[Rfam]
Shown here is a 92-nucleotide sequence, a member of the family "DUF3800-V RNA".
RNA sequence: CGAAGCGGGUAAAACGUCCUAUCGGGGUUCCUCGAUGUUCCCCUGCGGAGCGGGGUCUAAGUCGAGGGGUUACGCUGAUAGGUGCCGCUUCU
Numbered sequence: 001c002g003a004a005g006c007g008g009g010u011a012a013a014a015c016g017u018c019c020u021a022u023c024g025g026g027g028u029u030c031c032u033c034g035a036u037g038u039u040c041c042c043c044u045g046c047g048g049a050g051c052g053g054g055g056u057c058u059a060a061g062u063c064g065a066g067g068g069g070u071u072a073c074g075c076u077g078a079u080a081g082g083u084g085c086c087g088c089u090u091c092u
Base pairs, nucleotide, nucleotide: 002091003090004089005088006087009085010084022078023077024076025075027073029072030067031066032065033064034063035062036061041055042054043053044052045051046050

Annotation: Pairs were carried over by alignment from the consensus structure, which is taken from published work.